The family of this 37-nucleotide RNA sequence from Dactylococcopsis salina is "abiF RNA".
By type it is a small RNA.
RNA sequence: CCUGCCAAGCCUCUGAUUCAAGCUCAAAACGGCAGGU
Number, nucleotide and partner (000 for none) at each position: 001c036002c035003u034004g033005c032006c031007a000008a024009g023010c022011c000012u000013c000014u000015g000016a000017u000018u000019c000020a000021a000022g010023c009024u008025c000026a000027a000028a000029a000030c000031g006032g005033c004034a003035g002036g001037u000
Background:
Actinobacteria, Bacteroidetes, Clostridia, Proteobacteria, one Clostridia phage. NCBI's taxonomy places the organism under Bacteria, Bacillati, Cyanobacteriota, Cyanophyceae, Dactylococcopsis salina.